[Rfam]
RNA sequence: GAUUGGCGGUGAUGACCCAAUGAAAUUCAAGCUCAACAGACCGGAUUGUAGGCCUUCUCUUUUCAAGAGAAGGUUUGCGUGUCGACAACCCCGCUGAACUGAGCCUUC
Numbered sequence: 001g002a003u004u005g006g007c008g009g010u011g012a013u014g015a016c017c018c019a020a021u022g023a024a025a026u027u028c029a030a031g032c033u034c035a036a037c038a039g040a041c042c043g044g045a046u047u048g049u050a051g052g053c054c055u056u057c058u059c060u061u062u063u064c065a066a067g068a069g070a071a072g073g074u075u076u077g078c079g080u081g082u083c084g085a086c087a088a089c090c091c092c093g094c095u096g097a098a099c100u101g102a103g104c105c106u107u108c
Stems, first nucleotide, its partner, number of pairs: 001108002005105003
Small nucleolar RNA Z107/R87: a 108-nucleotide RNA sequence from Malus domestica. Rfam links the family to the GO terms RNA processing and nucleolus. A search with the family's covariance model found it, with a score of 81 bits. The family's RNA type in Rfam is C/D-box small nucleolar RNA.